[Rfam]
RNA sequence: CGCAGCGCUCAACCCGACACAACAUUCUGCAGCAAUGUUGUGCGACCUGCAGUGUCGGUUGAGCGCAGCG
Number, nucleotide and partner (000 for none) at each position: 001c070002g069003c068004a000005g066006c065007g064008c000009u000010c061011a060012a059013c058014c057015c000016g000017a000018c000019a000020c000021a039022a038023c037024a036025u035026u034027c000028u000029g000030c000031a000032g000033c000034a026035a025036u024037g023038u022039u021040g000041u000042g000043c000044g056045a055046c054047c000048u000049g000050c000051a000052g000053u000054g046055u045056c044057g014058g013059u012060u011061g010062a000063g000064c007065g006066c005067a000068g003069c002070g001
Overview:
A member of the RNA family "bZIP non canonical Hac1/Xbp1 intron" from Elsinoe batatas, 70 nucleotides long. The literature on the family includes a 2011 paper in RNA Biol by Hooks and Griffiths-Jones, "Conserved RNA structures in the non-canonical Hac1/Xbp1 intron". Rfam 15.1 lists 1,325 matches to the family in 1,320 species. NCBI's taxonomy places the organism under Eukaryota, saccharomyceta, leotiomyceta, Myriangiales, Elsinoe. Rfam describes the family as follows. bZIP intron RNA is a non-canonical intron that was first reported in HAC1 gene in yeast and XBP1 gene in Metazoa.